[Rfam]
RNA sequence: UAGUAUCUUCAGGGCGGGGUGCAAUUCCCUACCGGUGGUAUAGCCCACGAACCGUAACUGGUAUGAUUCGGUGAAACUCCGAAGCCGACAGUAAAGUCUGGAUGAAAGAAGAUUCUU
Numbered sequence: 001u002a003g004u005a006u007c008u009u010c011a012g013g014g015c016g017g018g019g020u021g022c023a024a025u026u027c028c029c030u031a032c033c034g035g036u037g038g039u040a041u042a043g044c045c046c047a048c049g050a051a052c053c054g055u056a057a058c059u060g061g062u063a064u065g066a067u068u069c070g071g072u073g074a075a076a077c078u079c080c081g082a083a084g085c086c087g088a089c090a091g092u093a094a095a096g097u098c099u100g101g102a103u104g105a106a107a108g109a110a111g112a113u114u115c116u117u
Stems, first nucleotide, its partner, number of pairs: 003115001005113006017029003031097002033087002035048004043085002053061001067083005089100003

The family of this 117-nucleotide RNA from [Clostridium] polysaccharolyticum is "FMN riboswitch aptamer (RFN element)". The source organism's lineage runs through Bacteria, Bacillati, Lachnospirales, Lachnospiraceae and Lachnoclostridium. The match comes from Rfam's covariance-model search (117 bits).